Rfam assigns this 114-nucleotide RNA sequence from Caenorhabditis angaria to the family "SL2 RNA".
The source organism's lineage runs through Eukaryota, Protostomia, Chromadorea, Rhabditina and Caenorhabditis.
This family represents SL2 RNA. SL2 RNA is involved in trans splicing in lower eukaryotes. Trans-splicing is a form of RNA processing. The acquisition of a spliced leader from a SL RNA is a intra-molecular reaction which precisely joins exons derived from separately transcribed RNAs. Approximately 25% of C. elegans genes are organised into polycistronic transcription units and the presence of SL2 on an mRNA is an indication the the gene is in an operon.
The match comes from Rfam's covariance-model search (78 bits).
[Rfam]
RNA sequence: GGUUUUAACCCAGUUACUCAAGGUAAUUUGAGGUUCUGACCUUUCGAAAGAAAGUGUCAACAUUUGACUUCAAUUUUUGGAUAACAGCUUCACCGGGGUAUCCGGAGAGGCGAA
Numbered sequence: 001g002g003u004u005u006u007a008a009c010c011c012a013g014u015u016a017c018u019c020a021a022g023g024u025a026a027u028u029u030g031a032g033g034u035u036c037u038g039a040c041c042u043u044u045c046g047a048a049a050g051a052a053a054g055u056g057u058c059a060a061c062a063u064u065u066g067a068c069u070u071c072a073a074u075u076u077u078u079g080g081a082u083a084a085c086a087g088c089u090u091c092a093c094c095g096g097g098g099u100a101u102c103c104g105g106a107g108a109g110g111c112g113a114a
Stems, first nucleotide, its partner, number of pairs: 007035002010030001013027005037059004041054005089112001091110001094107001097103002